[Rfam]
RNA: Rhizobiales sRNA Atu_At1
RNA sequence: CCCGGCCGCAUGUCAAACGGGCUCGACGGCACGAGGAACGUGGCGGUUUUCCCGUUUUCACGCCACGGCAGCAACGGAUUGGCAGGCGAGCCUCUGUCCCGUCUGCGGC
Dot-bracket structure: .....((((..(((.....)))..(((((...((((..(((((((...............)))))))((..(........))).......))))...)).))).)))).
Numbered sequence: 001c002c003c004g005g006c007c008g009c010a011u012g013u014c015a016a017a018c019g020g021g022c023u024c025g026a027c028g029g030c031a032c033g034a035g036g037a038a039c040g041u042g043g044c045g046g047u048u049u050u051c052c053c054g055u056u057u058u059c060a061c062g063c064c065a066c067g068g069c070a071g072c073a074a075c076g077g078a079u080u081g082g083c084a085g086g087c088g089a090g091c092c093u094c095u096g097u098c099c100c101g102u103c104u105g106c107g108g109c
Stems, first nucleotide, its partner, number of pairs: 006108004012022003025103003028099002033094004039067007068083002072081001